Shown here is a 130-nucleotide RNA from Ipomoea nil, a member of the family "MIR168 microRNA precursor family". Rfam 15.1 lists 518 matches to the family in 218 species. NCBI's taxonomy places the organism under Eukaryota, Tracheophyta, Solanales, Convolvulaceae, Ipomoea. The literature on the family includes a 2002 paper in Genes Dev by Reinhart et al., "MicroRNAs in plants".

Nucleotides: 130
Base pairs, nucleotide, nucleotide: 013117014116017113018112019111020110023107024106025105026104027103028102029101030100031099032098034096035095036094037093038092040090041089
Number, partner (000 for none) and nucleotide at each position: 001000g002000u003000c004000g005000c006000g007000g008000c009000g010000g011000u012000c013117u014116c015000u016000a017113a018112u019111u020110c021000g022000c023107u024106u025105g026104g027103u028102g029101c030100a031099g032098g033000u034096c035095g036094g037093g038092a039000a040090c041089u042000g043000c044000c045000g046000g047000a048000u049000c050000g051000g052000a053000u054000u055000g056000c057000a058000u059000g060000u061000a062000c063000g064000u065000c066000g067000c068000c069000g070000g071000c072000c073000a074000u075000c076000u077000g078000c079000a080000a081000a082000u083000c084000u085000a086000g087000c088000u089041a090040g091000c092038u093037c094036c095035u096034g097000c098032c099031u100030u101029g102028c103027a104026u105025c106024a107023a108000c109000u110020g111019a112018a113017u114000c115000g116014g117013a118000g119000a120000c121000c122000g123000c124000g125000g126000u127000g128000a129000u130000u